[Rfam]
RNA sequence: GCUGAGCCUGGUAGCGUGGGCUUGUAACUCGAGUGAGAGCUUUAAGAUGGCUGGAGUUUGGCUUGGUUCAGAAGGCUGGGCUCUGUUGAAGUUUGCACAGGCUUGCCCAUUCCAAGUAUGGAGUUGUGCCUUGGCCACCUAGCGAAGGCUCGGGGGUCAAGGUCACUAAAGCGGAAGGCACAGCGCGAGGCUGGUUUCACAGAGCAGCGAUCACUUCCCUCUCUUGUCGGUGGAAGGAUAACAGGCUUGUUCUUGGCAAGUCCAUUUAACACCCGAUGAGCCACUCAAAUCAACAACCAUCUUU
Numbered sequence: 001g002c003u004g005a006g007c008c009u010g011g012u013a014g015c016g017u018g019g020g021c022u023u024g025u026a027a028c029u030c031g032a033g034u035g036a037g038a039g040c041u042u043u044a045a046g047a048u049g050g051c052u053g054g055a056g057u058u059u060g061g062c063u064u065g066g067u068u069c070a071g072a073a074g075g076c077u078g079g080g081c082u083c084u085g086u087u088g089a090a091g092u093u094u095g096c097a098c099a100g101g102c103u104u105g106c107c108c109a110u111u112c113c114a115a116g117u118a119u120g121g122a123g124u125u126g127u128g129c130c131u132u133g134g135c136c137a138c139c140u141a142g143c144g145a146a147g148g149c150u151c152g153g154g155g156g157u158c159a160a161g162g163u164c165a166c167u168a169a170a171g172c173g174g175a176a177g178g179c180a181c182a183g184c185g186c187g188a189g190g191c192u193g194g195u196u197u198c199a200c201a202g203a204g205c206a207g208c209g210a211u212c213a214c215u216u217c218c219c220u221c222u223c224u225u226g227u228c229g230g231u232g233g234a235a236g237g238a239u240a241a242c243a244g245g246c247u248u249g250u251u252c253u254u255g256g257c258a259a260g261u262c263c264a265u266u267u268a269a270c271a272c273c274c275g276a277u278g279a280g281c282c283a284c285u286c287a288a289a290u291c292a293a294c295a296a297c298c299a300u301c302u303u304u
Stems, first nucleotide, its partner, number of pairs: 001040003004023007028037003044303007052295002056291001058288004063283001065281001068279003074273002078263005087255001089254003098249008107237002110235005116228001120224004128163009138153002141150003166171001173218005182211001184209003191202003
RNA: Plant signal recognition particle RNA